This 76-nucleotide RNA from Cyprinus carpio belongs to the Rfam family "Small nucleolar RNA SNORD83".
[Rfam]
RNA sequence: GCCACAUGAUGUGAUCUAGAUUGCAUGAGCAUUACUGCAAAGAUGACCGUCUAUCUAUCACCCAAGACUGAUGGCU
Numbered sequence: 001g002c003c004a005c006a007u008g009a010u011g012u013g014a015u016c017u018a019g020a021u022u023g024c025a026u027g028a029g030c031a032u033u034a035c036u037g038c039a040a041a042g043a044u045g046a047c048c049g050u051c052u053a054u055c056u057a058u059c060a061c062c063c064a065a066g067a068c069u070g071a072u073g074g075c076u
Stems, first nucleotide, its partner, number of pairs: 001075004029038003
Record summary:
A search with the family's covariance model found it, with a score of 52 bits. The family's RNA type in Rfam is C/D-box small nucleolar RNA. Rfam links the family to the GO terms nucleolus and RNA processing.